[Rfam]
RNA sequence: GCAACCUCAAGCUGGCGCAUGGCAAUGUGGUGGUGUUUCGAUCGCUGCUGGGCAUCAGCUGGAUGUGGUUCUUUGGCGCGGUGUUUCUCUCGCAGUUCCCCAGCUUUGCCAAGGAAGUGCUG
Number, nucleotide and partner (000 for none) at each position: 001g000002c000003a000004a000005c000006c000007u000008c000009a000010a049011g048012c047013u000014g045015g000016c000017g042018c000019a000020u000021g038022g037023c000024a000025a034026u033027g000028u000029g000030g000031u000032g000033g026034u025035g000036u000037u022038u021039c000040g000041a000042u017043c000044g000045c014046u000047g012048c011049u010050g000051g121052g120053c119054a118055u117056c000057a000058g000059c113060u112061g000062g110063a105064u000065g000066u000067g099068g098069u000070u000071c095072u094073u000074u092075g091076g090077c000078g088079c000080g087081g086082u000083g000084u000085u000086u081087c080088u078089c000090u076091c075092g074093c000094a072095g071096u000097u000098c068099c067100c000101c000102a000103g000104c000105u063106u000107u000108g000109c000110c062111a000112a060113g059114g000115a000116a000117g055118u054119g053120c052121u051122g000
RNA: Burkholderia RNA 11
Organism: Comamonas sp. 26